[Rfam]
RNA sequence: GGGUUACUCCUUGGCGCUUGCGCGCUUUGUUUGAUAAAGAUUCGCACCUAUAUCAAACCGGGUAACCUCACCUUUGGCAAGGCCAUACUGUCAGAUCAAGUCGGAACUACUACAAACCAGAGAAUUGAAAUUAGUCCGGUCAUGAGAGCAGGUCAACUGGAACGUUACGCGCUGGAUUUACAGCAGGCAGUCA
Numbered sequence: 001g002g003g004u005u006a007c008u009c010c011u012u013g014g015c016g017c018u019u020g021c022g023c024g025c026u027u028u029g030u031u032u033g034a035u036a037a038a039g040a041u042u043c044g045c046a047c048c049u050a051u052a053u054c055a056a057a058c059c060g061g062g063u064a065a066c067c068u069c070a071c072c073u074u075u076g077g078c079a080a081g082g083c084c085a086u087a088c089u090g091u092c093a094g095a096u097c098a099a100g101u102c103g104g105a106a107c108u109a110c111u112a113c114a115a116a117c118c119a120g121a122g123a124a125u126u127g128a129a130a131u132u133a134g135u136c137c138g139g140u141c142a143u144g145a146g147a148g149c150a151g152g153u154c155a156a157c158u159g160g161a162a163c164g165u166u167a168c169g170c171g172c173u174g175g176a177u178u179u180a181c182a183g184c185a186g187g188c189a190g191u192c193a
Base pairs, nucleotide, nucleotide: 001068002067003066004065005064006063007062009061010060014025015024016023017022029058030057031056032055033054034053035052036051038049039048075150076149081141082140084139090107091106092104094102095101096100109135110134111133112132114131168187171184172183173182174181
RNA: Proteobacterial sRNA psRNA2
Organism: Sulfuriferula sp. AH1